[Rfam]
The family of this 46-nucleotide sequence from Pelagibacterium luteolum is "ctRNA".
Rfam's curators write: This family represents a group of ctRNAs (or counter-transcribed RNAs) from p42d and related plasmids. ctRNAs are small, highly structured, antisense sequences which are involved in negative regulation. Members of this family are known to bind to the mRNA of repC causing translational repression. This model contains the predicted stem-loop structure followed by a U-rich tract which is proposed to act as a Rho-independent transcriptional terminator.
The family's RNA type in Rfam is antisense RNA.
Lineage of the source: Bacteria > Pseudomonadota > Alphaproteobacteria > Devosiaceae > Pelagibacterium.
It scores 68 bits against the family's covariance model.
A reference for the family is Venkova-Canova et al. (2004), "Two discrete elements are required for the replication of a repABC plasmid: an antisense RNA and a stem-loop structure", Mol Microbiol.
RNA sequence: AGAAGGGCUUCCGCAGCGGUAACGUUGGGGGGCCUUUUUCUUUUGC
Numbered sequence: 001a002g003a004a005g006g007g008c009u010u011c012c013g014c015a016g017c018g019g020u021a022a023c024g025u026u027g028g029g030g031g032g033c034c035u036u037u038u039u040c041u042u043u044u045g046c
Stems, first nucleotide, its partner, number of pairs: 005035008015026004